TPP riboswitch aptamer (THI element): a 103-nucleotide RNA from Kosmotoga sp.
On this family, see Winkler et al., Nature 2002: "Thiamine derivatives bind messenger RNAs directly to regulate bacterial gene expression".
NCBI's taxonomy places the organism under Bacteria, Thermotogota, Thermotogae, Kosmotogales, Kosmotoga.
RNA sequence: UUGAAUUGCCAGGGGAGCUAUUGAAGGCUGAGAGUGCGUGCGGCGCAGACCCUAAGAACCUGAUUCGGGUAAUACCGACGAAGGAAGGACUGAGUAAUGCCGU
Numbered sequence: 001u002u003g004a005a006u007u008g009c010c011a012g013g014g015g016a017g018c019u020a021u022u023g024a025a026g027g028c029u030g031a032g033a034g035u036g037c038g039u040g041c042g043g044c045g046c047a048g049a050c051c052c053u054a055a056g057a058a059c060c061u062g063a064u065u066c067g068g069g070u071a072a073u074a075c076c077g078a079c080g081a082a083g084g085a086a087g088g089a090c091u092g093a094g095u096a097a098u099g100c101c102g103u
Stems, first nucleotide, its partner, number of pairs: 009088002011053004017028003035047005059084003065078004